[Rfam]
RNA sequence: AGCUUUGCGAAAUGGCAGUAUCAUAGCCAAUGAGGUUUAUCCGAGGUGUGAUUGCUAAUUGAAAACUUUUCCCAAUACCCUGCUGUGACGACUUUCAAUAUAGUUGGUAUUGGUGACUUCUGACAGUCUCUAUGGAGA
Numbered sequence: 001a002g003c004u005u006u007g008c009g010a011a012a013u014g015g016c017a018g019u020a021u022c023a024u025a026g027c028c029a030a031u032g033a034g035g036u037u038u039a040u041c042c043g044a045g046g047u048g049u050g051a052u053u054g055c056u057a058a059u060u061g062a063a064a065a066c067u068u069u070u071c072c073c074a075a076u077a078c079c080c081u082g083c084u085g086u087g088a089c090g091a092c093u094u095u096c097a098a099u100a101u102a103g104u105u106g107g108u109a110u111u112g113g114u115g116a117c118u119u120c121u122g123a124c125a126g127u128c129u130c131u132a133u134g135g136a137g138a
Stems, first nucleotide, its partner, number of pairs: 020052005026047003034042002082114003085110003089106005127138004
Dot-bracket structure: ...................(((((.(((.....((.....))..)))))))).............................((((((.(((((........))))).))).)))............((((....))))

This 138-nucleotide RNA sequence from Saimiri boliviensis belongs to the Rfam family "U4 spliceosomal RNA". It scores 89 bits against the family's covariance model. The organism belongs to Saimiri boliviensis, within Eukaryota. Clan: U4 clan. Pairs were carried over by alignment from the consensus structure, which is taken from published work. The family's RNA type in Rfam is spliceosomal small nuclear RNA.